[Rfam]
RNA sequence: CUUGGAAGCAAGAUGGUCGCUCCUUAAGAUUUUCUUAAGGGGAGGAAAGUCCGGGCUCCCCAGAAACAAGGUGCCGGAUAACGUCCGGCGAGGGUAACUUUAGGGAAAGUGCCACAGAAAAUAUACCGCCUUAUGUUUUGUAUAUAAGGUAAGGGUGAAAUGGUGUGGUAAGAGCACACCGCAUUCCUGGUAACAGGUAUGGCAGGGUAAACCCCACCUGGAGCAAAACCAAAUAGGGACGAUACUUUAGGGUAACCUAAAACGUGGGUUUCUGCACGAUCGUUCGGGUAGGUUGCGUGAAGGCGUUGGUAACAACGCUUCCAGAUGAAUGACCAUCCAGGCUCAAGCGGGCUGGACAGAACCCGGCUUAUAUGCUUCCAAGCAAA
Numbered sequence: 001c002u003u004g005g006a007a008g009c010a011a012g013a014u015g016g017u018c019g020c021u022c023c024u025u026a027a028g029a030u031u032u033u034c035u036u037a038a039g040g041g042g043a044g045g046a047a048a049g050u051c052c053g054g055g056c057u058c059c060c061c062a063g064a065a066a067c068a069a070g071g072u073g074c075c076g077g078a079u080a081a082c083g084u085c086c087g088g089c090g091a092g093g094g095u096a097a098c099u100u101u102a103g104g105g106a107a108a109g110u111g112c113c114a115c116a117g118a119a120a121a122u123a124u125a126c127c128g129c130c131u132u133a134u135g136u137u138u139u140g141u142a143u144a145u146a147a148g149g150u151a152a153g154g155g156u157g158a159a160a161u162g163g164u165g166u167g168g169u170a171a172g173a174g175c176a177c178a179c180c181g182c183a184u185u186c187c188u189g190g191u192a193a194c195a196g197g198u199a200u201g202g203c204a205g206g207g208u209a210a211a212c213c214c215c216a217c218c219u220g221g222a223g224c225a226a227a228a229c230c231a232a233a234u235a236g237g238g239a240c241g242a243u244a245c246u247u248u249a250g251g252g253u254a255a256c257c258u259a260a261a262a263c264g265u266g267g268g269u270u271u272c273u274g275c276a277c278g279a280u281c282g283u284u285c286g287g288g289u290a291g292g293u294u295g296c297g298u299g300a301a302g303g304c305g306u307u308g309g310u311a312a313c314a315a316c317g318c319u320u321c322c323a324g325a326u327g328a329a330u331g332a333c334c335a336u337c338c339a340g341g342c343u344c345a346a347g348c349g350g351g352c353u354g355g356a357c358a359g360a361a362c363c364c365g366g367c368u369u370a371u372a373u374g375c376u377u378c379c380a381a382g383c384a385a386a
Base pairs, nucleotide, nucleotide: 001382002381003380004379005378006377007376008375009374010373011371012337013336014335015334016333017332018331020042021041022040023039024038025037026036027035028034047369048368049367051366052365053364054363055362056223057222058221059220065271066270069219070218071217072216073215074088075087076086077085078084089103090101091100092099093098104214105213109212110211111208112207113206126154127153128150129149130148131147132146133145134144135143136142162180163179164178165177166176167175181203182201183200184199186197187196188195189194227294228293229292230291237285238284239283240282241281242280263278264277265276266275301320302319303318304317305316306315307314308313
Rfam assigns this 386-nucleotide sequence from Nucleicultrix amoebiphila to the family "Bacterial RNase P class A". A search with the family's covariance model found it, with a score of 334 bits. Pairs were carried over by alignment from the consensus structure, which is taken from published work. Rfam classes the family as a ribozyme. Ribonuclease P (RNase P) is a ubiquitous endoribonuclease, found in archaea, bacteria and eukarya as well as chloroplasts and mitochondria.